[Rfam]
THF (Tetrahydrofolate) riboswitch aptamer: a 97-nucleotide RNA from Bittarella massiliensis.
The family's consensus secondary structure is taken from published work.
Its family is annotated with tetrahydrofolate metabolic process in the Gene Ontology.
For this family Rfam cites "The structure of a tetrahydrofolate-sensing riboswitch reveals two ligand binding sites in a single aptamer" (Trausch et al., Structure, 2011).
RNA sequence: AGCAGAGUAGGGGACCGCGCGUUAAGUGCCGCUCGAACGGGGAGUUGUCGGGCGGACGAAAAGGCGACUUGCGGUGCGGUCCCCGCAUCCCGCUGCU
Numbered sequence: 001a002g003c004a005g006a007g008u009a010g011g012g013g014a015c016c017g018c019g020c021g022u023u024a025a026g027u028g029c030c031g032c033u034c035g036a037a038c039g040g041g042g043a044g045u046u047g048u049c050g051g052g053c054g055g056a057c058g059a060a061a062a063g064g065c066g067a068c069u070u071g072c073g074g075u076g077c078g079g080u081c082c083c084c085g086c087a088u089c090c091c092g093c094u095g096c097u
Stems, first nucleotide, its partner, number of pairs: 001097005010084010020073003026057002029055008040090003044086001061070003